[Rfam]
Record summary
This 204-nucleotide sequence from Eudyptes chrysocome belongs to the Rfam family "Small nucleolar RNA SNORA74". Pairs were carried over by alignment from the consensus structure, which was predicted with PFOLD. The match comes from Rfam's covariance-model search (122 bits). It is annotated as an H/ACA-box small nucleolar RNA. From the family's description: U19 belongs to the H/ACA class of snoRNAs. snoRNAs bind a number of proteins (including dyskerin, Gar1p and Nop10p in the case of the H/ACA class) to form snoRNP complexes. This class are thought to guide the sites of modification of uridines to pseudouridines by forming direct base pairing interactions with substrate RNAs.
RNA sequence: UCCAGCGGUAGUCAGCUACCCAUUGCUGCUCAGUGCCUGUGAUAGUGUUAUGCUGCUGGGAGAGAAAUGUGCUGCCGAGUCACUCCUGGCACCACCAGUGCUGUUCUAGUGCUAGAUGGUGCCAGGUUUUGGCAGCACUCUGCAUGCUUGAGAGUGGAGUAACUCCUCCUCGGUGGAGUUAAUCCUAGAUUGGAUGCAGACAAC
Dot-bracket structure: (((((((((.((..((((.(((..((........)).)).).))))...)))))))))))........(((((((((.......(((.((((((.(.(((((.....)))))..).)))))).)))...))))))))).((((((.(........(((.(((((((........))))))).)))......).)))))).....
Numbered sequence: 001u002c003c004a005g006c007g008g009u010a011g012u013c014a015g016c017u018a019c020c021c022a023u024u025g026c027u028g029c030u031c032a033g034u035g036c037c038u039g040u041g042a043u044a045g046u047g048u049u050a051u052g053c054u055g056c057u058g059g060g061a062g063a064g065a066a067a068u069g070u071g072c073u074g075c076c077g078a079g080u081c082a083c084u085c086c087u088g089g090c091a092c093c094a095c096c097a098g099u100g101c102u103g104u105u106c107u108a109g110u111g112c113u114a115g116a117u118g119g120u121g122c123c124a125g126g127u128u129u130u131g132g133c134a135g136c137a138c139u140c141u142g143c144a145u146g147c148u149u150g151a152g153a154g155u156g157g158a159g160u161a162a163c164u165c166c167u168c169c170u171c172g173g174u175g176g177a178g179u180u181a182a183u184c185c186u187a188g189a190u191u192g193g194a195u196g197c198a199g200a201c202a203a204c
Stems, first nucleotide, its partner, number of pairs: 001060009011051002015046004020041001021039002025036002069138009085126003089122006096115001098112005140199006147192001156185003160181007